[Rfam]
RNA sequence: UGAUGGCUGUUCUUCUCACUGCUUGAAGCCAUAGGUAGUUGGAUUGUAGUUCAUCCCAUAUCUAAGCUGUCUUGCCUUCGAUCAGAGCACCACAGGAAUGUGUUGGCUGUCCAUCAGAGCCUUCUGAUUUUUGCAGUCAAACAAUA
Numbered sequence: 001u002g003a004u005g006g007c008u009g010u011u012c013u014u015c016u017c018a019c020u021g022c023u024u025g026a027a028g029c030c031a032u033a034g035g036u037a038g039u040u041g042g043a044u045u046g047u048a049g050u051u052c053a054u055c056c057c058a059u060a061u062c063u064a065a066g067c068u069g070u071c072u073u074g075c076c077u078u079c080g081a082u083c084a085g086a087g088c089a090c091c092a093c094a095g096g097a098a099u100g101u102g103u104u105g106g107c108u109g110u111c112c113a114u115c116a117g118a119g120c121c122u123u124c125u126g127a128u129u130u131u132u133g134c135a136g137u138c139a140a141a142c143a144a145u146a
Base pairs, nucleotide, nucleotide: 002055003054004053005052006051008049014043015042016041018039020037021036022035023034069138071136072135082127083126084125085124086123087120088119090117095112096111098110099109100108
Source information: Rfam assigns this 146-nucleotide sequence from Molossus molossus to the family "Small nucleolar RNA SNORA79". From the family's description: ACA65 (SNORA79) is a member of the H/ACA class of snoRNAs that guide the sites of modification of uridines to pseudouridines. This snoRNA was identified by computational screening and its expression in mouse experimentally verified by Northern blot and primer extension analysis. The match comes from Rfam's covariance-model search (69 bits). Lineage of the source: Eukaryota > Dipnotetrapodomorpha > Tetrapoda > Theria > Molossus. By type it is an H/ACA-box small nucleolar RNA.